[Rfam]
RNA sequence: GUCAACUACCCACCGCCUAUAGAGGCGGGGGCUUGCGGUUAAAAACUACAAGCCUUAGUUGACUACCCUCAGCCAGGGUCGAAAGACUAUUGAGCUAUGUUAGACAGGUUACGACACCAGGGAAUGAUGCCCUAGUUCCAUGCUCUGUCGCAUAUACUUAAACAGUCCUGAGGGGUAGGGACAGUGGUAUAUGCACACAAGCCUGUCUAACCUUGGGGAAGGGCAAAUUAA
Numbered sequence: 001g002u003c004a005a006c007u008a009c010c011c012a013c014c015g016c017c018u019a020u021a022g023a024g025g026c027g028g029g030g031g032c033u034u035g036c037g038g039u040u041a042a043a044a045a046c047u048a049c050a051a052g053c054c055u056u057a058g059u060u061g062a063c064u065a066c067c068c069u070c071a072g073c074c075a076g077g078g079u080c081g082a083a084a085g086a087c088u089a090u091u092g093a094g095c096u097a098u099g100u101u102a103g104a105c106a107g108g109u110u111a112c113g114a115c116a117c118c119a120g121g122g123a124a125u126g127a128u129g130c131c132c133u134a135g136u137u138c139c140a141u142g143c144u145c146u147g148u149c150g151c152a153u154a155u156a157c158u159u160a161a162a163c164a165g166u167c168c169u170g171a172g173g174g175g176u177a178g179g180g181a182c183a184g185u186g187g188u189a190u191a192u193g194c195a196c197a198c199a200a201g202c203c204u205g206u207c208u209a210a211c212c213u214u215g216g217g218g219a220a221g222g223g224c225a226a227a228u229u230a231a
Base pairs, nucleotide, nucleotide: 001063002062003061004060005059006058007057008056010031011030013028014027016024032052033051034050035049066217067216068215071096072095073094099211100210101209102208103207104206105205106204107203108202109201114148115147118142119141121139122138123137124136125135128225129224130223131222132221133220150194151193152192153191154190155189156188157187158186162185163184165182166181167180168179169178171176
RNA: HNH endonuclease-associated RNA and ORF (HEARO) RNA